This 186-nucleotide part of an RNA from Eosentomon sp. FNSA-2002 belongs to the Rfam family "Eukaryotic small subunit ribosomal RNA". The sequence is in the family's curated seed alignment. Gene Ontology terms of the family: structural constituent of ribosome and ribosome.
RNA sequence: CCGCCCGUCGCUACUACCGAUCGAGUGAUGUAGUGAGGCUUUUGGACCGUUCAGGAACGAGGCUGCGGUGCUCGCUCGCGGGCGCUGUGGCCUGUAUUUCCCCGGGAAGAUGGCCGAACUGGAUCGCUCAGAGGAAGUAAAAGUCGUAACAAGGUUUCCGUAGGUGAACCUGCGGAAGGAUCAUUA
Numbered sequence: 001c002c003g004c005c006c007g008u009c010g011c012u013a014c015u016a017c018c019g020a021u022c023g024a025g026u027g028a029u030g031u032a033g034u035g036a037g038g039c040u041u042u043u044g045g046a047c048c049g050u051u052c053a054g055g056a057a058c059g060a061g062g063c064u065g066c067g068g069u070g071c072u073c074g075c076u077c078g079c080g081g082g083c084g085c086u087g088u089g090g091c092c093u094g095u096a097u098u099u100c101c102c103c104g105g106g107a108a109g110a111u112g113g114c115c116g117a118a119c120u121g122g123a124u125c126g127c128u129c130a131g132a133g134g135a136a137g138u139a140a141a142a143g144u145c146g147u148a149a150c151a152a153g154g155u156u157u158c159c160g161u162a163g164g165u166g167a168a169c170c171u172g173c174g175g176a177a178g179g180a181u182c183a184u185u186a
Stems, first nucleotide, its partner, number of pairs: 001153001003150001006146002009143001012139004017134002021130001023129007031121004037115004042110002047105003053099003057095001060093014155178010